[Rfam]
RNA sequence: ACACACACUGAGUGGCCAGAUUAUUAUGAAUUCUGAAUGCAUAAUAAUCAGACCACUCAGUAUGUGU
Dot-bracket structure: ...((.(((((((((.(.((((((((((...........)))))))))).).))))))))).))...